About this RNA
This 79-nucleotide sequence from Myotis myotis belongs to the Rfam family "mir-9186 microRNA precursor family". Pairs were carried over by alignment from the consensus structure, which was predicted with RNAalifold. It scores 75 bits against the family's covariance model.

RNA sequence: UAGGGGGAGGGGAGCGGCAUGGUUGGCACUGAGGUAAUAGACACCCGCAGUGCCAGCCAUGCCGCCCCCUUUCCCUACA
Numbered sequence: 001u002a003g004g005g006g007g008a009g010g011g012g013a014g015c016g017g018c019a020u021g022g023u024u025g026g027c028a029c030u031g032a033g034g035u036a037a038u039a040g041a042c043a044c045c046c047g048c049a050g051u052g053c054c055a056g057c058c059a060u061g062c063c064g065c066c067c068c069c070u071u072u073c074c075c076u077a078c079a
Base pairs, nucleotide, nucleotide: 001077002076003075004074005073007071008070009069010068014065015064016063017062018061019060020059023056024055025054026053027052028051029050030049031048